[Rfam]
RNA sequence: CUACAAUGAUGUCAGAAUUUUUCAUCAACAGCAGUUGAGGGUUGAUACUUGGGUCUGAGUGA
Numbered sequence: 001c002u003a004c005a006a007u008g009a010u011g012u013c014a015g016a017a018u019u020u021u022u023c024a025u026c027a028a029c030a031g032c033a034g035u036u037g038a039g040g041g042u043u044g045a046u047a048c049u050u051g052g053g054u055c056u057g058a059g060u061g062a
Stems, first nucleotide, its partner, number of pairs: 002061003008026004
Dot-bracket structure: .(((...((((...........))))................................))).
RNA: Small nucleolar RNA SNORD56
Organism: Erinaceus europaeus